[Rfam]
RNA sequence: CCUUUUAUAUCGCUGAGACAGAAUGAAUUUCUGUGCGGGGGAACCAAUUCGAUCGCAACUUGAUCUCGGGGUGAAUCUUCAUUUUUGAAGAAGGGGUACUCUCCAUCCCUAAUCCGACAGCUAACCUCGUAAGCGUAGAAAAGAGAGAAA
Numbered sequence: 001c002c003u004u005u006u007a008u009a010u011c012g013c014u015g016a017g018a019c020a021g022a023a024u025g026a027a028u029u030u031c032u033g034u035g036c037g038g039g040g041g042a043a044c045c046a047a048u049u050c051g052a053u054c055g056c057a058a059c060u061u062g063a064u065c066u067c068g069g070g071g072u073g074a075a076u077c078u079u080c081a082u083u084u085u086u087g088a089a090g091a092a093g094g095g096g097u098a099c100u101c102u103c104c105a106u107c108c109c110u111a112a113u114c115c116g117a118c119a120g121c122u123a124a125c126c127u128c129g130u131a132a133g134c135g136u137a138g139a140a141a142a143g144a145g146a147g148a149a150a
Stems, first nucleotide, its partner, number of pairs: 011135004018034006035130006045068001069115003077090004093109004
Shown here is a 150-nucleotide RNA sequence from Planococcus rifietoensis, a member of the family "c-di-AMP riboswitch aptamer (ydaO/yuaA leader)". This family represents a conserved RNA structure found upstream of the ydaO and yuaA genes in Bacillus subtilis and related genes in other bacteria.